Shown here is an 86-nucleotide RNA sequence from Eragrostis curvula, a member of the family "Small nucleolar RNA Z162". The source organism's lineage runs through Eukaryota, Streptophytina, Euphyllophyta, Spermatophyta and Eragrostis. It is annotated as a C/D-box small nucleolar RNA.
[Rfam]
RNA sequence: CGUGGCACAGUGAGGAACUUAUUUUGCUAAUGUAUCUAUGAGGUCGAAAGGCCGAUGACCCAUGUCCUUUUCAUUCUGAGUGCCUG
Numbered sequence: 001c002g003u004g005g006c007a008c009a010g011u012g013a014g015g016a017a018c019u020u021a022u023u024u025u026g027c028u029a030a031u032g033u034a035u036c037u038a039u040g041a042g043g044u045c046g047a048a049a050g051g052c053c054g055a056u057g058a059c060c061c062a063u064g065u066c067c068u069u070u071u072c073a074u075u076c077u078g079a080g081u082g083c084c085u086g
Base pairs, nucleotide, nucleotide: 004084005083006082007081008080010074011073012072013071014070043052044051045050
Dot-bracket structure: ...(((((.(((((............................(((....))).................))))).....)))))..